RNA sequence: UUUCAGACAAGGCAAACCCAUCGAAAGGUGGGGGCGCAAAGUUGCGGGCCUAACGGUGUUGACGGAAAAAUUCCGCACCACCUACGGCAGCCGGACCGCCAGG
Numbered sequence: 001u002u003u004c005a006g007a008c009a010a011g012g013c014a015a016a017c018c019c020a021u022c023g024a025a026a027g028g029u030g031g032g033g034g035c036g037c038a039a040a041g042u043u044g045c046g047g048g049c050c051u052a053a054c055g056g057u058g059u060u061g062a063c064g065g066a067a068a069a070a071u072u073c074c075g076c077a078c079c080a081c082c083u084a085c086g087g088c089a090g091c092c093g094g095a096c097c098g099c100c101a102g103g
Base pairs, nucleotide, nucleotide: 012037013036017032018031019030020029021028022027041096042095043094045093046092047091048088049087050086055082056081057080058079
Notes: The family of this 103-nucleotide RNA sequence from Rhizobacter sp. is "c-di-GMP-I riboswitch aptamer". The organism belongs to Rhizobacter, within Bacteria. The base pairs follow the family's consensus structure, which is taken from published work.